[Rfam]
RNA sequence: ACGCAGACGUCCGGGUUUCGUGACAGGCGAGCCGUUCGUAAAACUUGGUUCGUUGUCGACGAAACCUGCACGAUCUGCUA
Numbered sequence: 001a002c003g004c005a006g007a008c009g010u011c012c013g014g015g016u017u018u019c020g021u022g023a024c025a026g027g028c029g030a031g032c033c034g035u036u037c038g039u040a041a042a043a044c045u046u047g048g049u050u051c052g053u054u055g056u057c058g059a060c061g062a063a064a065c066c067u068g069c070a071c072g073a074u075c076u077g078c079u080a
Stems, first nucleotide, its partner, number of pairs: 003078004012068009029051005
Overview: A member of the RNA family "mir-981 microRNA precursor family" from Ooceraea biroi, 80 nucleotides long. A reference for the family is Stark et al. (2007), "Systematic discovery and characterization of fly microRNAs using 12 Drosophila genomes", Genome Res. The match comes from Rfam's covariance-model search (67 bits).